[Rfam]
RNA sequence: CGCGAUGAUGAGUGAAUCCAAUGCUGAUGAGAUGAUGAGCCCCAAACCUGAGC
Numbered sequence: 001c002g003c004g005a006u007g008a009u010g011a012g013u014g015a016a017u018c019c020a021a022u023g024c025u026g027a028u029g030a031g032a033u034g035a036u037g038a039g040c041c042c043c044a045a046a047c048c049u050g051a052g053c
Stems, first nucleotide, its partner, number of pairs: 002024002007018003
A member of the RNA family "Small nucleolar RNA sR46" from Thermococcus kodakarensis, 53 nucleotides long. A reference for the family is Omer et al. (2000), "Homologs of small nucleolar RNAs in Archaea", Science. The sequence is in the family's curated seed alignment. The base pairs follow the family's consensus structure, which was predicted with WAR.